[Rfam]
RNA sequence: GUCUUGUCAGUGAUGUCUUAAAACACAAAUGUCUGAACAAAUGACUUUUCUGUGAUUCUACUCUUUGUACUGAGACAAGAC
Number, nucleotide and partner (000 for none) at each position: 001g000002u080003c079004u078005u077006g076007u075008c074009a000010g000011u000012g000013a000014u000015g000016u000017c000018u000019u000020a000021a000022a000023a000024c000025a000026c000027a000028a000029a000030u000031g000032u000033c000034u000035g000036a000037a000038c000039a000040a000041a000042u000043g000044a000045c000046u000047u000048u000049u000050c000051u000052g000053u000054g000055a000056u000057u000058c000059u000060a000061c000062u000063c000064u000065u000066u000067g000068u000069a000070c000071u000072g000073a000074g008075a007076c006077a005078a004079g003080a002081c000
The family of this 81-nucleotide sequence from Sphaeramia orbicularis is "Small nucleolar RNA SNORD72". The pairing is the family consensus, mapped onto this sequence. It scores 58 bits against the family's covariance model. The family has 16 seed sequences and 726 matches in Rfam 15.1.